[Rfam]
RNA sequence: CUCUUAUUGAGAGCGGUGGAGGGACUGGCCCUGUGAAACCCGGCAACCAUACAGCAAUAGCUGAAAAGGUGCUAAAUCCUGCAAAGCGACCGGCUUUGGAAAAUAAGGG
Numbered sequence: 001c002u003c004u005u006a007u008u009g010a011g012a013g014c015g016g017u018g019g020a021g022g023g024a025c026u027g028g029c030c031c032u033g034u035g036a037a038a039c040c041c042g043g044c045a046a047c048c049a050u051a052c053a054g055c056a057a058u059a060g061c062u063g064a065a066a067a068g069g070u071g072c073u074a075a076a077u078c079c080u081g082c083a084a085a086g087c088g089a090c091c092g093g094c095u096u097u098g099g100a101a102a103a104u105a106a107g108g109g
Base pairs, nucleotide, nucleotide: 001109002108003107004106005105006104007103008102013041015040016039017038021031022030023029025081027079028078042073043072044071045070047069048068050065052063053062077101082098083097084096085095086094087093